A member of the RNA family "Bacterial RNase P class A" from Anaerostipes sp. 992a, 347 nucleotides long. Taxonomically the source falls in Anaerostipes (Bacteria, Clostridia, Lachnospirales, Lachnospiraceae). Pairs were carried over by alignment from the consensus structure, which is taken from published work. Rfam links the family to the GO terms dimeric ribonuclease P complex, tRNA processing and ribonuclease P activity.
RNA sequence: CGAGUCAGAUAAAUGGUCGCGCCUGCUUGUUGGCAGGUGAGGAAAGUCCGGGCUUCACAGGGCAGGAUGCCGGAUAACGUCCGGUGGAGGUGACUCCAAGGAAAGUGCAACAGAAAUAAACCGCUUCCUGCAUUUGCCGGAAGUAAGGGUGGAAAGGCGAGGUAAGGGCUCACCGCCUGGCUGGUAACAGGCAGGGCACAUGUAAACCCCAUUCGAAGCAAGACCGAAUUGAGAACCAUAAGCUUGCCCGGCUUGUUCUCAGGUGGGUCGCUGGAGCUUGCUGGUAACAGUAAGUCGAGAUAGAUGAUCAUUCAAGACAUAACCCGGCUUAUCGUCUGGCUCGUCUU
Numbered sequence: 001c002g003a004g005u006c007a008g009a010u011a012a013a014u015g016g017u018c019g020c021g022c023c024u025g026c027u028u029g030u031u032g033g034c035a036g037g038u039g040a041g042g043a044a045a046g047u048c049c050g051g052g053c054u055u056c057a058c059a060g061g062g063c064a065g066g067a068u069g070c071c072g073g074a075u076a077a078c079g080u081c082c083g084g085u086g087g088a089g090g091u092g093a094c095u096c097c098a099a100g101g102a103a104a105g106u107g108c109a110a111c112a113g114a115a116a117u118a119a120a121c122c123g124c125u126u127c128c129u130g131c132a133u134u135u136g137c138c139g140g141a142a143g144u145a146a147g148g149g150u151g152g153a154a155a156g157g158c159g160a161g162g163u164a165a166g167g168g169c170u171c172a173c174c175g176c177c178u179g180g181c182u183g184g185u186a187a188c189a190g191g192c193a194g195g196g197c198a199c200a201u202g203u204a205a206a207c208c209c210c211a212u213u214c215g216a217a218g219c220a221a222g223a224c225c226g227a228a229u230u231g232a233g234a235a236c237c238a239u240a241a242g243c244u245u246g247c248c249c250g251g252c253u254u255g256u257u258c259u260c261a262g263g264u265g266g267g268u269c270g271c272u273g274g275a276g277c278u279u280g281c282u283g284g285u286a287a288c289a290g291u292a293a294g295u296c297g298a299g300a301u302a303g304a305u306g307a308u309c310a311u312u313c314a315a316g317a318c319a320u321a322a323c324c325c326g327g328c329u330u331a332u333c334g335u336c337u338g339g340c341u342c343g344u345c346u347u
Stems, first nucleotide, its partner, number of pairs: 001343010011332001012312007020039008044330003048327005053218004060249004065214005070084005085099001086097004100209002105207002107203003121148002123144006130137002156174002159171003175197001176195004181190003222269004231260006240254005276295008
Ribonuclease P (RNase P) is a ubiquitous endoribonuclease, found in archaea, bacteria and eukarya as well as chloroplasts and mitochondria.